[Rfam]
RNA sequence: AAAAAGGGCUUCUGCCGUGUGUGGCACGGGGUGGGGCUUGCCUUGUUCUCGCGGAAUCGACAUCAAGAGAUUUCGGAAGCACAAUUUUUGUGGGGGAGGGUUGCUGGUAACCGCUUGUUCCAGCACCCCA
Numbered sequence: 001a002a003a004a005a006g007g008g009c010u011u012c013u014g015c016c017g018u019g020u021g022u023g024g025c026a027c028g029g030g031g032u033g034g035g036g037c038u039u040g041c042c043u044u045g046u047u048c049u050c051g052c053g054g055a056a057u058c059g060a061c062a063u064c065a066a067g068a069g070a071u072u073u074c075g076g077a078a079g080c081a082c083a084a085u086u087u088u089u090g091u092g093g094g095g096g097a098g099g100g101u102u103g104c105u106g107g108u109a110a111c112c113g114c115u116u117g118u119u120c121c122a123g124c125a126c127c128c129c130a
Stems, first nucleotide, its partner, number of pairs: 008080005013026005027051005033044004052075007098128004103124005109119003
RNA: U11 spliceosomal RNA